RNA sequence: GGAGUCAGCCAGACAGUCGCUGCCUGCAUUGCAGGGGGAGGAAAGUCCGGGCUCCAUAGGGUAAGGUGCCAGAUAACGUCUGGGCGGCGCGAGCCGACGGCCAGUGCAGCAGAGAGUAGACCGCCAGGCUUCUGGCCUGGUAAGGGUGAAAGGGUGCGGUAAGAGCGCACCGCGACACUGGUAACAGUGUUGGCAUGGUAAACCCCACCUGGAGCAAGACCAAAUAGGGUUCCUUAAGGCGUGACCCGCGCCGGAACCGGGUAGGUUGCUUGACCUCAGGAGCAAUCCUGCGGCUAGAUGAAUGACUGUCCAUGACAGAACCCGGCUUAUCGGCUGGCUCCCAUU
Numbered sequence: 001g002g003a004g005u006c007a008g009c010c011a012g013a014c015a016g017u018c019g020c021u022g023c024c025u026g027c028a029u030u031g032c033a034g035g036g037g038g039a040g041g042a043a044a045g046u047c048c049g050g051g052c053u054c055c056a057u058a059g060g061g062u063a064a065g066g067u068g069c070c071a072g073a074u075a076a077c078g079u080c081u082g083g084g085c086g087g088c089g090c091g092a093g094c095c096g097a098c099g100g101c102c103a104g105u106g107c108a109g110c111a112g113a114g115a116g117u118a119g120a121c122c123g124c125c126a127g128g129c130u131u132c133u134g135g136c137c138u139g140g141u142a143a144g145g146g147u148g149a150a151a152g153g154g155u156g157c158g159g160u161a162a163g164a165g166c167g168c169a170c171c172g173c174g175a176c177a178c179u180g181g182u183a184a185c186a187g188u189g190u191u192g193g194c195a196u197g198g199u200a201a202a203c204c205c206c207a208c209c210u211g212g213a214g215c216a217a218g219a220c221c222a223a224a225u226a227g228g229g230u231u232c233c234u235u236a237a238g239g240c241g242u243g244a245c246c247c248g249c250g251c252c253g254g255a256a257c258c259g260g261g262u263a264g265g266u267u268g269c270u271u272g273a274c275c276u277c278a279g280g281a282g283c284a285a286u287c288c289u290g291c292g293g294c295u296a297g298a299u300g301a302a303u304g305a306c307u308g309u310c311c312a313u314g315a316c317a318g319a320a321c322c323c324g325g326c327u328u329a330u331c332g333g334c335u336g337g338c339u340c341c342c343a344u345u
Stems, first nucleotide, its partner, number of pairs: 001341010011330001012310007020038002023035005043328003047325005052214004059247004064210005069083005084098001085096004099205002104203002106199002121145002123141008153171006172194001173192008218267004228258006238252005274293002277290005

Source information: Shown here is a 345-nucleotide RNA sequence from Reinekea blandensis, a member of the family "Bacterial RNase P class A". From the family's description: Ribonuclease P (RNase P) is a ubiquitous endoribonuclease, found in archaea, bacteria and eukarya as well as chloroplasts and mitochondria. The family's consensus secondary structure is taken from published work. The organism belongs to Reinekea blandensis, within Bacteria. It is annotated as a ribozyme.